A member of the RNA family "tRNA" from Tumebacillus algifaecis, 67 nucleotides long.
[Rfam]
RNA sequence: AAUAUAGCGCAGCCUGGUAGCGCGCACCCUUGGGGUGGGUGAGGUCGUGGGUUCGAAUCCCGCUAUU
Number, nucleotide and partner (000 for none) at each position: 001a067002a066003u065004a064005u000006a000007g023008c022009g021010c020011a000012g000013c000014c000015u000016g000017g000018u000019a000020g010021c009022g008023c007024g000025c041026a040027c039028c038029c037030u000031u000032g000033g000034g000035g000036u000037g029038g028039g027040u026041g025042a000043g000044g000045u000046c000047g063048u062049g061050g060051g059052u000053u000054c000055g000056a000057a000058u000059c051060c050061c049062g048063c047064u004065a003066u002067u001
The organism belongs to Tumebacillus, within Bacteria.
The family is grouped with related families in Rfam's "tRNA clan".
Gene Ontology term of the family: triplet codon-amino acid adaptor activity.